[Rfam]
RNA sequence: GGUUUUUUGAACCUUUACUCAAGGUACGCAAAUGUUUUGAACGGAAGUGAUUCCGUUUCAAAUUAAUCAAAUUUUGGAAAUGUUGUGGGGGUUUCCUGCAACUAAUA
Numbered sequence: 001g002g003u004u005u006u007u008u009g010a011a012c013c014u015u016u017a018c019u020c021a022a023g024g025u026a027c028g029c030a031a032a033u034g035u036u037u038u039g040a041a042c043g044g045a046a047g048u049g050a051u052u053c054c055g056u057u058u059c060a061a062a063u064u065a066a067u068c069a070a071a072u073u074u075u076g077g078a079a080a081u082g083u084u085g086u087g088g089g090g091g092u093u094u095c096c097u098g099c100a101a102c103u104a105a106u107a
Base pairs, nucleotide, nucleotide: 007032008031014028016026017025018024038060039059040058041057042055043054044053045052046051084105085102086101088099090096091095

A member of the RNA family "SL2 RNA" from Panagrolaimus sp. JU765, 107 nucleotides long. The match comes from Rfam's covariance-model search (43 bits). Its family is annotated with mRNA trans splicing, via spliceosome in the Gene Ontology. Rfam's curators write: This family represents SL2 RNA. SL2 RNA is involved in trans splicing in lower eukaryotes. Trans-splicing is a form of RNA processing. The acquisition of a spliced leader from a SL RNA is a intra-molecular reaction which precisely joins exons derived from separately transcribed RNAs. NCBI's taxonomy places the organism under Eukaryota, Nematoda, Rhabditida, Panagrolaimomorpha, Panagrolaimus. Rfam 15.1 lists 598 matches to the family in 38 species.